This 58-nucleotide RNA from Salmonella enterica belongs to the Rfam family "Salmonella enterica sRNA STnc420". The organism belongs to Salmonella enterica subsp. enterica serovar Typhi, within Bacteria. It is annotated as a small RNA.
Nucleotides: 058
Base pairs, nucleotide, nucleotide: 005057006056007055027051028050029049031047032046033045034044035043036042
Number, partner (000 for none) and nucleotide at each position: 001000u002000a003000u004000u005057g006056c007055c008000u009000g010000a011000c012000g013000a014000a015000a016000u017000g018000c019000a020000u021000g022000a023000a024000c025000g026000a027051a028050a029049a030000a031047a032046g033045c034044g035043c036042c037000u038000g039000a040000u041000c042036g043035g044034c045033g046032c047031u048000c049029u050028u051027u052000a053000u054000u055007g056006g057005u058000g
The family's consensus secondary structure was predicted with CMfinder.